A member of the RNA family "Early nodulin 40" from Solanum commersonii, 333 nucleotides long. Gene Ontology term of the family: nodulation. The family's consensus secondary structure is taken from published work.
RNA sequence: AUGCAGUGGGAUGAAGCAAUCCAUGGGUCUUAAGAAAAGAUAGGCAAGUUGGAGUGAAGGAGGACUUUUAAAUGCCCUCCUCUAUUAUGUUGCUCAGAUUUGUUCAAAAAUGUCGAUAGAUGCAUGUUGGAUUCUCCAAAAUCAACGCGAUUAUGACAACAUUUCUGAAGAGUCCGAGCAACAUAAUUGCACCAUAUACAAUUUCAAGUUUGCUCAUACUUGAGCCAAAUUCUGUGUGGAUAUAUGAUGAUAAAAAUAGCAAAGGAUGUUGGUAAAAGGAUGGCAAACCGGCAAGUCACAAAACGGCAAUUAUGGACUCCGUUUUGGAGUCUU
Numbered sequence: 001a002u003g004c005a006g007u008g009g010g011a012u013g014a015a016g017c018a019a020u021c022c023a024u025g026g027g028u029c030u031u032a033a034g035a036a037a038a039g040a041u042a043g044g045c046a047a048g049u050u051g052g053a054g055u056g057a058a059g060g061a062g063g064a065c066u067u068u069u070a071a072a073u074g075c076c077c078u079c080c081u082c083u084a085u086u087a088u089g090u091u092g093c094u095c096a097g098a099u100u101u102g103u104u105c106a107a108a109a110a111u112g113u114c115g116a117u118a119g120a121u122g123c124a125u126g127u128u129g130g131a132u133u134c135u136c137c138a139a140a141a142u143c144a145a146c147g148c149g150a151u152u153a154u155g156a157c158a159a160c161a162u163u164u165c166u167g168a169a170g171a172g173u174c175c176g177a178g179c180a181a182c183a184u185a186a187u188u189g190c191a192c193c194a195u196a197u198a199c200a201a202u203u204u205c206a207a208g209u210u211u212g213c214u215c216a217u218a219c220u221u222g223a224g225c226c227a228a229a230u231u232c233u234g235u236g237u238g239g240a241u242a243u244a245u246g247a248u249g250a251u252a253a254a255a256a257u258a259g260c261a262a263a264g265g266a267u268g269u270u271g272g273u274a275a276a277a278g279g280a281u282g283g284c285a286a287a288c289c290g291g292c293a294a295g296u297c298a299c300a301a302a303a304c305g306g307c308a309a310u311u312a313u314g315g316a317c318u319c320c321g322u323u324u325u326g327g328a329g330u331c332u333u
Stems, first nucleotide, its partner, number of pairs: 056192001208288006226278001315331005

A reference for the family is Gultyaev and Roussis (2007), "Identification of conserved secondary structures and expansion segments in enod40 RNAs reveals new enod40 homologues in plants", Nucleic Acids Res.